[Rfam]
RNA sequence: CGCGCUCGCUCUUCACGACGGAUCGUCCGGCACGUACCUGCCGGUGGAGGGAAACAUCA
Numbered sequence: 001c002g003c004g005c006u007c008g009c010u011c012u013u014c015a016c017g018a019c020g021g022a023u024c025g026u027c028c029g030g031c032a033c034g035u036a037c038c039u040g041c042c043g044g045u046g047g048a049g050g051g052a053a054a055c056a057u058c059a
Base pairs, nucleotide, nucleotide: 009051010050011049012048013047014046015045027044028043029042030041031040032039